RNA: Small nucleolar RNA SNORA77
RNA sequence: ACACUUUUUAUCUGCACCUGGUUGCAACCCCAGGCGAUGCUUUUUCUGUCUGUCAGAGAAACAUUCCAAUGUGCUGUGGCUGCCUUGACCUGUCAGGGGUGAUGCAGCUGCCUGGGAACACAGCG
Number, nucleotide and partner (000 for none) at each position: 001a049002c048003a000004c000005u000006u000007u000008u000009u000010a000011u000012c000013u000014g040015c039016a038017c000018c036019u000020g035021g000022u033023u032024g031025c000026a000027a000028c000029c000030c000031c024032a023033g022034g000035c020036g018037a000038u016039g015040c014041u000042u000043u000044u000045u000046c000047u000048g002049u001050c000051u000052g000053u000054c000055a000056g000057a000058g000059a000060a000061a000062c000063a000064u000065u116066c115067c114068a113069a000070u000071g000072u000073g108074c107075u106076g105077u104078g103079g000080c000081u101082g100083c099084c098085u097086u000087g000088a000089c000090c000091u000092g000093u000094c000095a000096g000097g085098g084099g083100u082101g081102a000103u078104g077105c076106a075107g074108c073109u000110g000111c000112c000113u068114g067115g066116g065117a000118a000119c000120a000121c000122a000123g000124c000125g000